The record is a 75-nucleotide sequence from Alligator sinensis, which matches "Mammalian CPEB3 ribozyme" in Rfam. Its family is annotated with RNA nuclease activity in the Gene Ontology. The match comes from Rfam's covariance-model search (50 bits). Lineage of the source: Eukaryota > Bilateria > Deuterostomia > Tetrapoda > Alligator. Rfam describes the family as follows. The mammalian CPEB3 ribozyme is a self cleaving RNA located in the second intron of the CPEB3 gene which belongs to a family of genes regulating messenger RNA polyadenylation.

RNA sequence: AAUUGCCAUAACGGCCAUGGCAGAAGCGCUCAUGCUGCGGCCCUGUCAGAUUUUCAAGAACCUGCAAAUUCUGCU
Numbered sequence: 001a002a003u004u005g006c007c008a009u010a011a012c013g014g015c016c017a018u019g020g021c022a023g024a025a026g027c028g029c030u031c032a033u034g035c036u037g038c039g040g041c042c043c044u045g046u047c048a049g050a051u052u053u054u055c056a057a058g059a060a061c062c063u064g065c066a067a068a069u070u071c072u073g074c075u
Base pairs, nucleotide, nucleotide: 013042014041015040016039019075020074021073022072023071024070025069026038027037028036047064048063049062051060052059053058